RNA sequence: AAGGUCCCUCUUUGAAGGGAGCUCUCUGGGACAAUCUGACUUGUAGAAUUGUCAUGGAGUUGCUCUCUUUACUGCUCUGGG
Numbered sequence: 001a002a003g004g005u006c007c008c009u010c011u012u013u014g015a016a017g018g019g020a021g022c023u024c025u026c027u028g029g030g031a032c033a034a035u036c037u038g039a040c041u042u043g044u045a046g047a048a049u050u051g052u053c054a055u056g057g058a059g060u061u062g063c064u065c066u067c068u069u070u071a072c073u074g075c076u077c078u079g080g081g
Stems, first nucleotide, its partner, number of pairs: 014070005020064003025058004030053003034049002

A member of the RNA family "mir-46/mir-47/mir-281 microRNA precursor family" from Owenia fusiformis, 81 nucleotides long. Taxonomically the source falls in Owenia (Eukaryota, Annelida, Polychaeta, Sabellida). It scores 46 bits against the family's covariance model. Pairs were carried over by alignment from the consensus structure, which was predicted with RNAalifold. Rfam links the family to the GO terms miRNA-mediated post-transcriptional gene silencing and RISC complex.